[Rfam]
The family of this 109-nucleotide sequence from Shimia sp. SK013 is "Guanidine-I riboswitch aptamer". A reference for the family is Barrick et al. (2004), "New RNA motifs suggest an expanded scope for riboswitches in bacterial genetic control", Proc Natl Acad Sci U S A.
RNA sequence: GUGCAGGACGCUUAGGGUUCCGCCGCCUUACAAGCGGGUCAGGUCCGAGAAGCGUCACCUUGUUGGCAAAAUCCGGCAAGGCACACGGCGGGGCAAAAUCCCGGGAGAC
Numbered sequence: 001g002u003g004c005a006g007g008a009c010g011c012u013u014a015g016g017g018u019u020c021c022g023c024c025g026c027c028u029u030a031c032a033a034g035c036g037g038g039u040c041a042g043g044u045c046c047g048a049g050a051a052g053c054g055u056c057a058c059c060u061u062g063u064u065g066g067c068a069a070a071a072u073c074c075g076g077c078a079a080g081g082c083a084c085a086c087g088g089c090g091g092g093g094c095a096a097a098a099u100c101c102c103g104g105g106a107g108a109c
Base pairs, nucleotide, nucleotide: 007056008055009054010053011052012051015046016045020043021042022040023037024036025035026034028032058081059080060079061078062077063076064075065074066073084104086107090102091101092100

The organism belongs to Shimia, within Bacteria. Its family is annotated with regulation of gene expression in the Gene Ontology.